[Rfam]
RNA sequence: GUACGAUAAUAGCAAAGCUAUCUGAAAAGUAGUGACGCAAAACUAAAGGGGCUAAAACGUUGAGUCAUGCCAGCCAGUUGCCGAA
Numbered sequence: 001g002u003a004c005g006a007u008a009a010u011a012g013c014a015a016a017g018c019u020a021u022c023u024g025a026a027a028a029g030u031a032g033u034g035a036c037g038c039a040a041a042a043c044u045a046a047a048g049g050g051g052c053u054a055a056a057a058c059g060u061u062g063a064g065u066c067a068u069g070c071c072a073g074c075c076a077g078u079u080g081c082c083g084a085a
Stems, first nucleotide, its partner, number of pairs: 012038002017033004022029002041079004048075002050071003057065002